[Rfam]
RNA sequence: CUUGUAACAAUAUCCUGAUGCUGUCCGAGUACCUGCUACAAACUCCAGCAUCAGUGAUUUUGUUGCUGG
Dot-bracket structure: .....(((((.((((((((((((......................))))))))).))).))))).....